The family of this 101-nucleotide sequence is "PhotoRC-II RNA".
Rfam classes the family as a cis-regulatory element.
Pairs were carried over by alignment from the consensus structure, which is taken from published work.

RNA sequence: UCACCCUGAGUACAACUGCUCUUAAACCGAGACCUAUAGGCAGUAUAAGUAUUAGUCUCUCAUAUCCUGUAGUGAAGGGAUUACAGGAAAUAUAGUAUCGC
Numbered sequence: 001u002c003a004c005c006c007u008g009a010g011u012a013c014a015a016c017u018g019c020u021c022u023u024a025a026a027c028c029g030a031g032a033c034c035u036a037u038a039g040g041c042a043g044u045a046u047a048a049g050u051a052u053u054a055g056u057c058u059c060u061c062a063u064a065u066c067c068u069g070u071a072g073u074g075a076a077g078g079g080a081u082u083a084c085a086g087g088a089a090a091u092a093u094a095g096u097a098u099c100g101c
Stems, first nucleotide, its partner, number of pairs: 016043005023038002029059005066087007